[Rfam]
RNA sequence: GGAGUUCACCAUGUGAAAUGCCUGUGGAACAUGUAGCGGACCAGGCGGCGUGAGGGCAACCGAAGCGUCGAAGCCCUGGGAAGCGGACGGUGCGAGCCGUAGCGAAAGCGAACCCGGUUCGGCCUCGAAACGCCAAGAUGAGAGCGGCCAGCCUGCCGAAGAUGGUGAAGCCAGCACGAGCGGGGAAGACACAGGUAGGAGCACCCGUUCGGCUCUCCGGGGUGGUAGGGGA
Numbered sequence: 001g002g003a004g005u006u007c008a009c010c011a012u013g014u015g016a017a018a019u020g021c022c023u024g025u026g027g028a029a030c031a032u033g034u035a036g037c038g039g040a041c042c043a044g045g046c047g048g049c050g051u052g053a054g055g056g057c058a059a060c061c062g063a064a065g066c067g068u069c070g071a072a073g074c075c076c077u078g079g080g081a082a083g084c085g086g087a088c089g090g091u092g093c094g095a096g097c098c099g100u101a102g103c104g105a106a107a108g109c110g111a112a113c114c115c116g117g118u119u120c121g122g123c124c125u126c127g128a129a130a131c132g133c134c135a136a137g138a139u140g141a142g143a144g145c146g147g148c149c150a151g152c153c154u155g156c157c158g159a160a161g162a163u164g165g166u167g168a169a170g171c172c173a174g175c176a177c178g179a180g181c182g183g184g185g186a187a188g189a190c191a192c193a194g195g196u197a198g199g200a201g202c203a204c205c206c207g208u209u210c211g212g213c214u215c216u217c218c219g220g221g222g223u224g225g226u227a228g229g230g231g232a
Stems, first nucleotide, its partner, number of pairs: 010033005019200001021198001036084002041079003044075002046070006054061002120224001122223006140217006146172003151166003177211008